Source information: Shown here is an 82-nucleotide RNA from Cannabis sativa, a member of the family "Small nucleolar RNA U61". By type it is a C/D-box small nucleolar RNA. Rfam 15.1 lists 401 matches to the family in 204 species. The match comes from Rfam's covariance-model search (77 bits). Its family is annotated with RNA processing and nucleolus in the Gene Ontology. Clan: SNORD61 clan.
Nucleotides: 082
Stems, first nucleotide, its partner, number of pairs: 001082004
Number, partner (000 for none) and nucleotide at each position: 001082c002081a003080g004079c005000c006000g007000u008000g009000a010000g011000g012000a013000a014000g015000a016000a017000a018000c019000a020000c021000c022000u023000g024000u025000g026000c027000u028000u029000g030000a031000g032000g033000c034000a035000u036000u037000a038000a039000c040000a041000u042000g043000u044000c045000u046000a047000u048000g049000a050000c051000g052000g053000c054000u055000a056000c057000a058000c059000a060000a061000a062000c063000c064000u065000c066000u067000a068000a069000g070000a071000a072000g073000u074000u075000c076000u077000g078000a079004g080003c081002u082001g